RNA: THF (Tetrahydrofolate) riboswitch aptamer
Organism: Lactococcus allomyrinae
Nucleotides: 114
Base pairs, nucleotide, nucleotide: 003112004111005110010102011101012100013099016096017095018094019092020091021090025054026053028052029051030050031049032048033047034046038108039107040106041105042104058089059088060087061086062085063084
Number, partner (000 for none) and nucleotide at each position: 001000c002000a003112c004111a005110g006000a007000g008000u009000a010102g011101g012100g013099g014000a015000a016096g017095u018094g019092c020091g021090u022000u023000a024000a025054g026053u027000a028052c029051u030050g031049c032048a033047a034046g035000a036000c037000g038108g039107g040106a041105u042104g043000u044000u045000g046034c047033u048032u049031g050030c051029a052028g053026g054025c055000g056000a057000a058089g059088u060087a061086c062085a063084g064000a065000u066000u067000u068000g069000u070000u071000g072000a073000a074000a075000u076000u077000a078000c079000a080000a081000a082000u083000a084063c085062u086061g087060u088059a089058c090021g091020c092019g093000g094018u095017a096016c097000a098000a099013c100012u101011c102010c103000g104042c105041a106040u107039c108038c109000g110005c111004u112003g113000g114000u